[Rfam]
RNA sequence: AAGGGCCUUCGGGGACGGGUGCAAUUCCCUACCGGCGGUAUGGAAGGUUUUUCCGAGCCCGCGAGCCCAGCACUCACAGGACUAUUGACACAUUUUAAGAUCCGGCUGUUAAUUUCAUGGAAGCAAUCCCGGCAGUUCAUGGUUCUCGGUGAGUACCGGGUUGACCUGGUGUGAGGCCAGGGCCGACAGUGAAAGUCUGGAUGGGAGAAGGCACGU
Numbered sequence: 001a002a003g004g005g006c007c008u009u010c011g012g013g014g015a016c017g018g019g020u021g022c023a024a025u026u027c028c029c030u031a032c033c034g035g036c037g038g039u040a041u042g043g044a045a046g047g048u049u050u051u052u053c054c055g056a057g058c059c060c061g062c063g064a065g066c067c068c069a070g071c072a073c074u075c076a077c078a079g080g081a082c083u084a085u086u087g088a089c090a091c092a093u094u095u096u097a098a099g100a101u102c103c104g105g106c107u108g109u110u111a112a113u114u115u116c117a118u119g120g121a122a123g124c125a126a127u128c129c130c131g132g133c134a135g136u137u138c139a140u141g142g143u144u145c146u147c148g149g150u151g152a153g154u155a156c157c158g159g160g161u162u163g164a165c166c167u168g169g170u171g172u173g174a175g176g177c178c179a180g181g182g183c184c185g186a187c188a189g190u191g192a193a194a195g196u197c198u199g200g201a202u203g204g205g206a207g208a209a210g211g212c213a214c215g216u
Base pairs, nucleotide, nucleotide: 003214005212006211007210008209009208010207017029018028019027031196032195033185034184035062036061037060038059057183058182065161066160067159165181166180167179168178169177187199188198189197

Overview: The family of this 216-nucleotide sequence from Desulfofundulus thermobenzoicus is "FMN riboswitch aptamer (RFN element)". From the family's description: The RFN element is a highly conserved domain that is found frequently in the 5'-untranslated regions of prokaryotic mRNAs that encode for flavin mononucleotide (FMN) biosynthesis and transport proteins. Taxonomically the source falls in Desulfofundulus (Bacteria, Bacillati, Bacillota, Clostridia).